[Rfam]
RNA: Small nucleolar RNA snoR100
RNA sequence: CAAUAAAGGAAGUAUGGUAAUGUGCACAUAAAUUGAAUUAGGCCUCUAGGCCUGCCCUAUCUGAUGUCAUUUGGGUUUGAUUUGGGGGCAUGGUUGACAGCAAAACAG
Numbered sequence: 001c002a003a004u005a006a007a008g009g010a011a012g013u014a015u016g017g018u019a020a021u022g023u024g025c026a027c028a029u030a031a032a033u034u035g036a037a038u039u040a041g042g043c044c045u046c047u048a049g050g051c052c053u054g055c056c057c058u059a060u061c062u063g064a065u066g067u068c069a070u071u072u073g074g075g076u077u078u079g080a081u082u083u084g085g086g087g088g089c090a091u092g093g094u095u096g097a098c099a100g101c102a103a104a105a106c107a108g
Stems, first nucleotide, its partner, number of pairs: 012025004040091001042089003050081001052079001055074002